[Rfam]
This 84-nucleotide RNA from Burhinus bistriatus belongs to the Rfam family "Small nucleolar RNA SNORD121A".
Pairs were carried over by alignment from the consensus structure, which was predicted with WAR.
It is annotated as a C/D-box small nucleolar RNA.
The literature on the family includes a 2006 paper in Nucleic Acids Res by Yang et al., "snoSeeker: an advanced computational package for screening of guide and orphan snoRNA genes in the human genome".

RNA sequence: GUCUGAAGUAUAGUGAUGUUAUCUUUUCCAAGCACCUAUCUGAUUGCUCUGUGUAGAAAAUGACUGUUGCCAAGUGUUUUGCGU
Numbered sequence: 001g002u003c004u005g006a007a008g009u010a011u012a013g014u015g016a017u018g019u020u021a022u023c024u025u026u027u028c029c030a031a032g033c034a035c036c037u038a039u040c041u042g043a044u045u046g047c048u049c050u051g052u053g054u055a056g057a058a059a060a061u062g063a064c065u066g067u068u069g070c071c072a073a074g075u076g077u078u079u080u081g082c083g084u
Stems, first nucleotide, its partner, number of pairs: 001084002004081003008077004